[Rfam]
Nucleotides: 136
Base pairs, nucleotide, nucleotide: 011122012121013120014119018038019037020036021035022034023033024032025031026030039117040116041115042114043113044112049059050058060102061101062100067078068077069076070075081096082095083094084093
Number, partner (000 for none) and nucleotide at each position: 001000a002000c003000a004000g005000c006000u007000g008000a009000u010000a011122u012121g013120c014119c015000c016000a017000a018038u019037c020036c021035c022034g023033g024032g025031c026030g027000c028000c029000u030026u031025g032024c033023c034022c035021g036020g037019g038018a039117g040116c041115c042114g043113g044112g045000g046000a047000a048000c049059c050058a051000c052000c053000g054000a055000a056000c057000c058050u059049g060102g061101g062100g063000u064000g065000a066000a067078c068077c069076a070075c071000u072000u073000a074000g075070g076069u077068g078067g079000a080000a081096g082095g083094g084093c085000u086000u087000c088000c089000u090000c091000c092000a093084g094083c095082c096081c097000g098000a099000a100062c101061c102060c103000g104000u105000c106000a107000g108000c109000u110000a111000a112044c113043c114042c115041g116040g117039u118000c119014g120013g121012c122011g123000u124000a125000a126000g127000g128000a129000g130000a131000a132000g133000a134000g135000g136000a
This 136-nucleotide RNA sequence from Streptosporangium subroseum belongs to the Rfam family "c-di-AMP riboswitch aptamer (ydaO/yuaA leader)".
Rfam's curators write: This family represents a conserved RNA structure found upstream of the ydaO and yuaA genes in Bacillus subtilis and related genes in other bacteria.
The source organism's lineage runs through Bacteria, Actinomycetota, Actinomycetes, Streptosporangiales and Streptosporangium.